[Rfam]
The record is a 108-nucleotide RNA sequence from Denitrobaculum tricleocarpae, which matches "rpsB sRNA" in Rfam.
A reference for the family is Meyer et al. (2009), "Identification of candidate structured RNAs in the marine organism 'Candidatus Pelagibacter ubique'", BMC Genomics.
The organism belongs to Denitrobaculum, within Bacteria.
A search with the family's covariance model found it, with a score of 41 bits.
RNA sequence: CACACGUGGGUUUUGCGGCGGUCGGGGAGACAUCCCGGUCUUCGAUCUGGUGUCCGGAUCAUCCGGAUAAACAGCCCACGGAGGUCAAACCGGAGAAAGUUUUUAUGG
Numbered sequence: 001c002a003c004a005c006g007u008g009g010g011u012u013u014u015g016c017g018g019c020g021g022u023c024g025g026g027g028a029g030a031c032a033u034c035c036c037g038g039u040c041u042u043c044g045a046u047c048u049g050g051u052g053u054c055c056g057g058a059u060c061a062u063c064c065g066g067a068u069a070a071a072c073a074g075c076c077c078a079c080g081g082a083g084g085u086c087a088a089a090c091c092g093g094a095g096a097a098a099g100u101u102u103u104u105a106u107g108g
Stems, first nucleotide, its partner, number of pairs: 001083001003081001005080007016044001023037002026034001052068006